The family of this 110-nucleotide RNA sequence from Ornithinibacillus hominis is "SAM riboswitch aptamer (S box leader)". Rfam's curators write: The SAM riboswitch is found upstream of a number of genes which code for proteins involved in methionine or cysteine biosynthesis in Gram-positive bacteria. The source organism's lineage runs through Bacteria, Bacillati, Bacilli, Caryophanales and Ornithinibacillus.
[Rfam]
RNA sequence: UUCUUAUCAAGAGAAGUCGAGGGAACAGGCCCGAUGACGCUUCAGCAACCUCUGAUAUAUCAUGUCAGAAAGGUGCUAAUUCCGACGAGAUUAUUCUUGAGAGAUAAGAG
Numbered sequence: 001u002u003c004u005u006a007u008c009a010a011g012a013g014a015a016g017u018c019g020a021g022g023g024a025a026c027a028g029g030c031c032c033g034a035u036g037a038c039g040c041u042u043c044a045g046c047a048a049c050c051u052c053u054g055a056u057a058u059a060u061c062a063u064g065u066c067a068g069a070a071a072g073g074u075g076c077u078a079a080u081u082c083c084g085a086c087g088a089g090a091u092u093a094u095u096c097u098u099g100a101g102a103g104a105u106a107a108g109a110g
Base pairs, nucleotide, nucleotide: 001110002109003108004107005106006105007104008103013043014042015041016040017039021032022031023030028083029082044077045076046075047074049073050072051069052068053067054066055065056064081102086099087098088097089096090095